[Rfam]
RNA sequence: UCUUAAGUGAUGCGUCUCCUCCUCCCAUUUGCGCAUCCUUGAGUGUUCCCCUCUGGAGGUUUUGCUGGAAACGGCACCUUCACAACUGUAAAGCCGGACUUUUGUCCGGCUUUUUUUU
Numbered sequence: 001u002c003u004u005a006a007g008u009g010a011u012g013c014g015u016c017u018c019c020u021c022c023u024c025c026c027a028u029u030u031g032c033g034c035a036u037c038c039u040u041g042a043g044u045g046u047u048c049c050c051c052u053c054u055g056g057a058g059g060u061u062u063u064g065c066u067g068g069a070a071a072c073g074g075c076a077c078c079u080u081c082a083c084a085a086c087u088g089u090a091a092a093g094c095c096g097g098a099c100u101u102u103u104g105u106c107c108g109g110c111u112u113u114u115u116u117u118u
Base pairs, nucleotide, nucleotide: 002043003042004041005040007038012034013033014032015031054082055081056080057079058078059077060076090113091112092111093110094109095108096107097106098105099104